[Rfam]
RNA sequence: ACAACAAAGAGAAUGAAGAAACAAAAUCGGUCAUUCUCUGGCGCGGUCAAGUCUUGGGAGGAUGCGAUCUAGGCGCGGUUACUCGCUGCCGCCCAAUUGGGUUAAUGAUCGGACGCGUAUCUUAAAAGCAAGGCUUCGGCCUUGCUUUUUUUU
Dot-bracket structure: ..((.(....((((((..............)))))).....((((.....((((.....))))..((((..((((((......))).))).(((....))).....))))...)))).........((((((((....))))))))...).))
A member of the RNA family "Alphaproteobacterial sRNA ar9" from Tianweitania sediminis, 153 nucleotides long. Pairs were carried over by alignment from the consensus structure. The family's RNA type in Rfam is small RNA.